Notes
The record is a 128-nucleotide RNA from Caballeronia glathei, which matches "Burkholderia sRNA Bp1_Cand684_SIPHT" in Rfam. The organism belongs to Caballeronia, within Bacteria. The family has 14 seed sequences and 176 matches in Rfam 15.1. On this family, see Khoo et al., BMC Genomics 2012: "Computational discovery and RT-PCR validation of novel Burkholderia conserved and Burkholderia pseudomallei unique sRNAs".
RNA sequence: AAGAAAGUGACUGCCGCCCCGCACAGGGGCGAAGCUAAUAAACCAAAGCCAAUACAAGUUUCGCAGGAGCGCAAGCGCAUCAAACGGUGUAAACAACAAACACCACACCCGAACGCCAGCGAUCUCUC
Numbered sequence: 001a002a003g004a005a006a007g008u009g010a011c012u013g014c015c016g017c018c019c020c021g022c023a024c025a026g027g028g029g030c031g032a033a034g035c036u037a038a039u040a041a042a043c044c045a046a047a048g049c050c051a052a053u054a055c056a057a058g059u060u061u062c063g064c065a066g067g068a069g070c071g072c073a074a075g076c077g078c079a080u081c082a083a084a085c086g087g088u089g090u091a092a093a094c095a096a097c098a099a100a101c102a103c104c105a106c107a108c109c110c111g112a113a114c115g116c117c118a119g120c121g122a123u124c125u126c127u128c
Stems, first nucleotide, its partner, number of pairs: 012091003015031006058085003114121002